[Rfam]
RNA: raiA RNA
RNA sequence: UUGAAGCGGGUCUGUGGUUGCAAGCCGAUGCCAGUCGCAGGCAAAACGGUCCACGUAAUCCAUCCAAAGCGGUGGGGAGCAUGGUGCGGCUUAGAAGUAAGCCCGGCCGCGUUAAAAGCGCGAGAGAACGGCGUGGGGGCAGAGAAUGCUAUGAGCAAAGUUCCCGCCGGCGAGUGUGGGGUCAAAGACCAGGUCAGCCGAUCUUCAA
Numbered sequence: 001u002u003g004a005a006g007c008g009g010g011u012c013u014g015u016g017g018u019u020g021c022a023a024g025c026c027g028a029u030g031c032c033a034g035u036c037g038c039a040g041g042c043a044a045a046a047c048g049g050u051c052c053a054c055g056u057a058a059u060c061c062a063u064c065c066a067a068a069g070c071g072g073u074g075g076g077g078a079g080c081a082u083g084g085u086g087c088g089g090c091u092u093a094g095a096a097g098u099a100a101g102c103c104c105g106g107c108c109g110c111g112u113u114a115a116a117a118g119c120g121c122g123a124g125a126g127a128a129c130g131g132c133g134u135g136g137g138g139g140c141a142g143a144g145a146a147u148g149c150u151a152u153g154a155g156c157a158a159a160g161u162u163c164c165c166g167c168c169g170g171c172g173a174g175u176g177u178g179g180g181g182u183c184a185a186a187g188a189c190c191a192g193g194u195c196a197g198c199c200g201a202u203c204u205u206c207a208a
Stems, first nucleotide, its partner, number of pairs: 001208006007200003012197003015191005028177003031041001033091007050084002059075002063071001082184001103170005108122005126163004133156002139149003